[Rfam]
Rfam assigns this 231-nucleotide RNA from Vairimorpha ceranae to the family "Nuclear RNase P".

Nucleotides: 231
Stems, first nucleotide, its partner, number of pairs: 001231001004228003009188007017031005040218005046163004052065002055063002066081006085157006104142003189206006
Number, partner (000 for none) and nucleotide at each position: 001231g002000c003000c004228a005227a006226a007000a008000g009188c010187u011186u012185u013184c014183g015182u016000u017031a018030g019029g020028g021027g022000a023000a024000u025000u026000u027021c028020c029019c030018u031017u032000g033000g034000g035000a036000a037000g038000g039000u040218c041217u042216g043215a044214g045000u046163g047162g048161a049160a050000u051000a052065u053064g054000g055063u056062c057000g058000a059000a060000a061000u062056g063055g064053c065052a066081c067080u068079u069078a070077g071076u072000u073000a074000a075000u076071g077070c078069u079068a080067a081066g082000a083000a084000a085157g086156u087155u088154a089153g090152u091000u092000u093000a094000a095000u096000a097000g098000a099000a100000a101000u102000u103000c104142a105141c106140u107000u108000u109000u110000g111000a112000u113000a114000u115000g116000a117000c118000u119000g120000a121000a122000a123000u124000a125000g126000a127000a128000u129000g130000a131000u132000u133000a134000u135000c136000a137000u138000u139000u140106a141105g142104u143000c144000u145000g146000g147000a148000a149000a150000a151000u152090g153089c154088u155087a156086a157085c158000u159000a160049u161048u162047c163046c164000a165000u166000u167000u168000u169000u170000a171000a172000a173000u174000a175000g176000u177000c178000a179000a180000a181000c182015a183014c184013g185012a186011a187010a188009g189206g190205c191204a192203a193202u194201g195000u196000a197000g198000g199000u200000c201194c202193a203192u204191u205190g206189u207000a208000a209000c210000a211000a212000a213000a214044u215043u216042c217041a218040g219000a220000c221000u222000a223000c224000u225000c226006u227005u228004u229000g230000g231001c